[Rfam]
RNA sequence: AUGAAGACAGCAGGAGAGUGGCAAGCACUAAACGUGUAAGCCCGCCGAAGAAGUAAGCAACUAUGCCGUUUGUCGUCCCGAUGAACUCUGGUUGUAAAUCUUUCAGGCACCUUACUGAUCGCCCUGA
Numbered sequence: 001a002u003g004a005a006g007a008c009a010g011c012a013g014g015a016g017a018g019u020g021g022c023a024a025g026c027a028c029u030a031a032a033c034g035u036g037u038a039a040g041c042c043c044g045c046c047g048a049a050g051a052a053g054u055a056a057g058c059a060a061c062u063a064u065g066c067c068g069u070u071u072g073u074c075g076u077c078c079c080g081a082u083g084a085a086c087u088c089u090g091g092u093u094g095u096a097a098a099u100c101u102u103u104c105a106g107g108c109a110c111c112u113u114a115c116u117g118a119u120c121g122c123c124c125u126g127a
Stems, first nucleotide, its partner, number of pairs: 006122001009119001011117003020042003044108003047104002051102003057095007

Description: The record is a 127-nucleotide RNA from Photobacterium ganghwense, which matches "Glycine riboswitch aptamer" in Rfam. The source organism's lineage runs through Bacteria, Pseudomonadati, Gammaproteobacteria, Vibrionaceae and Photobacterium. Rfam describes the family as follows. This family represents the bacterial glycine riboswitch.